[Rfam]
tRNA: a 93-nucleotide RNA sequence from Anaeromyces robustus. Rfam classes the family as a transfer RNA. A search with the family's covariance model found it, with a score of 55 bits. Lineage of the source: Eukaryota > Fungi > Neocallimastigomycetes > Neocallimastigaceae > Anaeromyces.
RNA sequence: GCUCUUGUAGCCUAGAGGUUUAAGGCGUCGUGCUUAUAAGGGUGAUCCUCUUAUGCAACGCGAAGAUCGCGGGUUCGACCCCCGCCAGGAGCA
Number, nucleotide and partner (000 for none) at each position: 001g092002c091003u090004c089005u088006u087007g086008u000009a000010g026011c025012c024013u023014a000015g000016a000017g000018g000019u000020u000021u000022a000023a013024g012025g011026c010027g000028u063029c062030g061031u060032g059033c000034u000035u000036a000037u000038a000039a000040g000041g000042g000043u000044g000045a000046u000047c000048c000049u000050c000051u000052u000053a000054u000055g000056c000057a000058a000059c032060g031061c030062g029063a028064a000065g000066a000067u000068c000069g085070c084071g083072g082073g081074u000075u000076c000077g000078a000079c000080c000081c073082c072083c071084g070085c069086c007087a006088g005089g004090a003091g002092c001093a000